The record is a 76-nucleotide RNA sequence from Prunus dulcis, which matches "Plastid-psbM 3UTR RNA" in Rfam. Rfam 15.1 lists 627 matches to the family in 337 species. Rfam classes the family as a cis-regulatory element. On this family, see Richter et al., Plant Commun 2023: "Retrograde signaling in plants: A critical review focusing on the GUN pathway and beyond". The organism belongs to Prunus, within Eukaryota. From the family's description: Plastid psbM is a non-coding RNA (ncRNA) recognised in plastids.
[Rfam]
RNA sequence: GAUACGAUAGUAUGGUAGAAAGAAAUAUCUGAAUCUUUCUACCAUACUAUUUAGUAUUGUGUAUAAAGUUGUAUUG
Dot-bracket structure: .....((((((((((((((((((..........)))))))))))))))))).........................